[Rfam]
RNA sequence: CAAGCAUGAAUGCUGCUAUUUUCCGCUUCUUCUUUUACUUUAGCACCUGAACUCAGGAGGCUUGCGCGUGAAAGAAGAAACGGAAAACAGCGCCUAAAAGCCUCCCUGGUGGAGGCUUUUUUUAU
Numbered sequence: 001c002a003a004g005c006a007u008g009a010a011u012g013c014u015g016c017u018a019u020u021u022u023c024c025g026c027u028u029c030u031u032c033u034u035u036u037a038c039u040u041u042a043g044c045a046c047c048u049g050a051a052c053u054c055a056g057g058a059g060g061c062u063u064g065c066g067c068g069u070g071a072a073a074g075a076a077g078a079a080a081c082g083g084a085a086a087a088c089a090g091c092g093c094c095u096a097a098a099a100g101c102c103u104c105c106c107u108g109g110u111g112g113a114g115g116c117u118u119u120u121u122u123u124a125u
Base pairs, nucleotide, nucleotide: 015091016090017089020086021085022084023083024082025081027079028078029077030076031075032074033073035071036070037069038068046057047056048055059065097119098118099117100116101115102114103113104112105111
RNA: Phenylalanine leader peptide
Organism: Citrobacter portucalensis